[Rfam]
RNA sequence: UUCUGGAACUACACAUUCUAAGAAAAGUGCUCUUAAAGAGCACUUUUCUUAGAAUGUGUAGUUCCAGA
Numbered sequence: 001u002u003c004u005g006g007a008a009c010u011a012c013a014c015a016u017u018c019u020a021a022g023a024a025a026a027g028u029g030c031u032c033u034u035a036a037a038g039a040g041c042a043c044u045u046u047u048c049u050u051a052g053a054a055u056g057u058g059u060a061g062u063u064c065c066a067g068a
Stems, first nucleotide, its partner, number of pairs: 002068032
The family of this 68-nucleotide sequence from Nematostella vectensis is "mir-9457 microRNA precursor family". The family's consensus secondary structure was predicted with RNAalifold. The sequence is in the family's curated seed alignment.